[Rfam]
RNA sequence: AUCAUUUGAGAAGCAAGAAAGGCAUCCUGCGCUCCUUCGGGAACCUGAUAUGAUGGAUACGCCGCCCAUCCAAGUGUU
Numbered sequence: 001a002u003c004a005u006u007u008g009a010g011a012a013g014c015a016a017g018a019a020a021g022g023c024a025u026c027c028u029g030c031g032c033u034c035c036u037u038c039g040g041g042a043a044c045c046u047g048a049u050a051u052g053a054u055g056g057a058u059a060c061g062c063c064g065c066c067c068a069u070c071c072a073a074g075u076g077u078u
Stems, first nucleotide, its partner, number of pairs: 001078001003076006013030003017026001021063003032047001033042003052070005